[Rfam]
RNA: S10-Clostridia ribosomal protein leader
Organism: Allolucifera butyrica
RNA sequence: CGCAAGCGAUGACGCGGAAGGUUGCCUUUGUUAAGAAGGGGAAAUUUCCGCGGAGAAUGUCCGUUCAGAGAAACUGGGCGAUAA
Numbered sequence: 001c002g003c004a005a006g007c008g009a010u011g012a013c014g015c016g017g018a019a020g021g022u023u024g025c026c027u028u029u030g031u032u033a034a035g036a037a038g039g040g041g042a043a044a045u046u047u048c049c050g051c052g053g054a055g056a057a058u059g060u061c062c063g064u065u066c067a068g069a070g071a072a073a074c075u076g077g078g079c080g081a082u083a084a
Stems, first nucleotide, its partner, number of pairs: 014051003019047003025039005058083004063079004